[Rfam]
RNA sequence: GCCACUGCUUGCAUCUGCUGCUGGUGCCCAGCGCCGGUCCCGAUCGCUUGGUGCUGUCAGUGGGUGCGAGCGGCAACUG
Numbered sequence: 001g002c003c004a005c006u007g008c009u010u011g012c013a014u015c016u017g018c019u020g021c022u023g024g025u026g027c028c029c030a031g032c033g034c035c036g037g038u039c040c041c042g043a044u045c046g047c048u049u050g051g052u053g054c055u056g057u058c059a060g061u062g063g064g065u066g067c068g069a070g071c072g073g074c075a076a077c078u079g
Base pairs, nucleotide, nucleotide: 005073006072007071008070009069010068011067012066013065014064015063016062017061018060019059020058022056023055024054025053026052027051028050